[Rfam]
RNA sequence: UAAAGUGGACAAGACGGUCGUCGGUUCCAACGCAUCUCUGAUAGAGAAGGAACGGGAGGAAAGUCCGAGCUCCACAGGACGCAGUGCUCCGUAACGCGGAGUCCCGGUGACGGGAAGGAAAGUGCAACAGAAAAUAUACCGUCCCGCCUUCUGGCGGGAUAAGGGUGAAAUGGCGGGGUCGUUCCCUGUUGAAAAUAUACAGGGGCAAGUAUCGACUUAAUGUAAGAGCCCACCGCUCCGGUGGUGACAUCGGAGGCAUGGCAAACCCCACUGGGAGAAAGGCUAAAUAGGGAGGGAUGAAGUGGUCCGCUUCGCUAGAACCUCUGGGUAAGCCGUUUGACCUCGCUGGCAACAACGAGGCUAGAUAAAUGACCGUCCACGACAGAACUCGGCUUAUAGUCUACUUAAACAA
Numbered sequence: 001u002a003a004a005g006u007g008g009a010c011a012a013g014a015c016g017g018u019c020g021u022c023g024g025u026u027c028c029a030a031c032g033c034a035u036c037u038c039u040g041a042u043a044g045a046g047a048a049g050g051a052a053c054g055g056g057a058g059g060a061a062a063g064u065c066c067g068a069g070c071u072c073c074a075c076a077g078g079a080c081g082c083a084g085u086g087c088u089c090c091g092u093a094a095c096g097c098g099g100a101g102u103c104c105c106g107g108u109g110a111c112g113g114g115a116a117g118g119a120a121a122g123u124g125c126a127a128c129a130g131a132a133a134a135u136a137u138a139c140c141g142u143c144c145c146g147c148c149u150u151c152u153g154g155c156g157g158g159a160u161a162a163g164g165g166u167g168a169a170a171u172g173g174c175g176g177g178g179u180c181g182u183u184c185c186c187u188g189u190u191g192a193a194a195a196u197a198u199a200c201a202g203g204g205g206c207a208a209g210u211a212u213c214g215a216c217u218u219a220a221u222g223u224a225a226g227a228g229c230c231c232a233c234c235g236c237u238c239c240g241g242u243g244g245u246g247a248c249a250u251c252g253g254a255g256g257c258a259u260g261g262c263a264a265a266c267c268c269c270a271c272u273g274g275g276a277g278a279a280a281g282g283c284u285a286a287a288u289a290g291g292g293a294g295g296g297a298u299g300a301a302g303u304g305g306u307c308c309g310c311u312u313c314g315c316u317a318g319a320a321c322c323u324c325u326g327g328g329u330a331a332g333c334c335g336u337u338u339g340a341c342c343u344c345g346c347u348g349g350c351a352a353c354a355a356c357g358a359g360g361c362u363a364g365a366u367a368a369a370u371g372a373c374c375g376u377c378c379a380c381g382a383c384a385g386a387a388c389u390c391g392g393c394u395u396a397u398a399g400u401c402u403a404c405u406u407a408a409a410c411a412a
Base pairs, nucleotide, nucleotide: 001408003406004405005404006403007402008401009400010399011397013377014376015375016374017373018372019371021056022055024053025052026051027050028049061395062394063393065392066391067390068389069388070277071276072275073274077308078307079306080305082273083272084271085270086269087101088100089099090098091097102116103114104113105112106111117268118267122266123265124262125261139164140163141160142159143158144157145156146155147154148153172234173233175231176230177229235257236255237254238253239252240251241250242249243248281334282333283332284331291325292324293323294322295321301311302310303309341360342359343358344357345356347354348353
Annotation: Shown here is a 412-nucleotide sequence from Candidatus Brocadia sinica, a member of the family "Bacterial RNase P class A". The base pairs follow the family's consensus structure, which is taken from published work. A search with the family's covariance model found it, with a score of 277 bits. Lineage of the source: Bacteria > Pseudomonadati > Candidatus Brocadiia > Candidatus Brocadiales > Candidatus Brocadia sinica.